[Rfam]
RNA sequence: ACCUAGGGUAGAGGCGCUAUAAGCUAAUAGUACUCAUCAGUAGCUGGCAAGCAUUGAUGGAUGAGAAAAGGAGCUAUAGCCGAAGAGGUUGUUUUGGCAAAAACAACUUCUGGCUUUGCAUAUAACAUAUGCAGGGCUGUCACUUAAAGUUUUAAGUGGAGAGCUACAAGGUUA
Number, nucleotide and partner (000 for none) at each position: 001a000002c000003c000004u000005a000006g000007g000008g167009u166010a165011g164012a000013g000014g000015c000016g080017c079018u078019a077020u076021a075022a000023g074024c073025u072026a000027a000028u000029a000030g000031u000032a000033c065034u064035c063036a062037u061038c060039a000040g058041u000042a000043g000044c000045u000046g000047g000048c000049a000050a000051g000052c000053a000054u000055u000056g000057a000058u040059g000060g038061a037062u036063g035064a034065g033066a000067a000068a000069a000070g000071g000072a025073g024074c023075u021076a020077u019078a018079g017080c016081c000082g000083a000084a111085g110086a109087g108088g107089u106090u105091g104092u103093u102094u101095u100096g000097g000098c000099a000100a095101a094102a093103a092104c091105a090106a089107c088108u087109u086110c085111u084112g138113g137114c136115u135116u134117u133118g132119c131120a130121u129122a128123u000124a000125a000126c000127a000128u122129a121130u120131g119132c118133a117134g116135g115136g114137c113138u112139g000140u159141c158142a157143c156144u155145u154146a153147a000148a000149g000150u000151u000152u000153u146154a145155a144156g143157u142158g141159g140160a000161g000162a000163g000164c011165u010166a009167c008168a000169a000170g000171g000172u000173u000174a000
Background
The family of this 174-nucleotide RNA sequence from Clostridium polyendosporum is "Lysine riboswitch aptamer".